[Rfam]
RNA sequence: CCGAAGGGUCGCUAGGGUUCCGGUCGCGCUGUGCGUGCGAUGCCUGGUCCAAGAGCAACCGGCCUCAGGCGCGCUGGCUUCAGACCAGACCGCGUCCAGGCUCCACGGCGGGACAAAAGCCCGGGAGGU
Numbered sequence: 001c002c003g004a005a006g007g008g009u010c011g012c013u014a015g016g017g018u019u020c021c022g023g024u025c026g027c028g029c030u031g032u033g034c035g036u037g038c039g040a041u042g043c044c045u046g047g048u049c050c051a052a053g054a055g056c057a058a059c060c061g062g063c064c065u066c067a068g069g070c071g072c073g074c075u076g077g078c079u080u081c082a083g084a085c086c087a088g089a090c091c092g093c094g095u096c097c098a099g100g101c102u103c104c105a106c107g108g109c110g111g112g113a114c115a116a117a118a119g120c121c122c123g124g125g126a127g128g129u
Stems, first nucleotide, its partner, number of pairs: 007060003011056002015050002020047002022044001023041006061102005104124001106127001110122003
Rfam assigns this 129-nucleotide sequence from Cupriavidus yeoncheonensis to the family "Guanidine-I riboswitch aptamer".
Lineage of the source: Bacteria > Pseudomonadati > Pseudomonadota > Betaproteobacteria > Cupriavidus.
It scores 78 bits against the family's covariance model.